[Rfam]
Rfam assigns this 103-nucleotide RNA from Trifolium medium to the family "MIR396 microRNA precursor family". The family's consensus secondary structure was predicted with WAR. The match comes from Rfam's covariance-model search (88 bits). Lineage of the source: Eukaryota > Magnoliopsida > eudicotyledons > rosids > Trifolium. Gene Ontology terms of the family: RISC complex and miRNA-mediated post-transcriptional gene silencing.

RNA sequence: GGUCAUGUUUUUCCACAGCUUUCUUGAACUUCUUUUGUAUCUUAAAUCUCUCCAAAGAUUAAAAGCCUUAGAAGCUCAAGAAAGCUGUGGGAGAAUAUGGCAA
Numbered sequence: 001g002g003u004c005a006u007g008u009u010u011u012u013c014c015a016c017a018g019c020u021u022u023c024u025u026g027a028a029c030u031u032c033u034u035u036u037g038u039a040u041c042u043u044a045a046a047u048c049u050c051u052c053c054a055a056a057g058a059u060u061a062a063a064a065g066c067c068u069u070a071g072a073a074g075c076u077c078a079a080g081a082a083a084g085c086u087g088u089g090g091g092a093g094a095a096u097a098u099g100g101c102a103a
Stems, first nucleotide, its partner, number of pairs: 003100005013090003017086006024079004029074005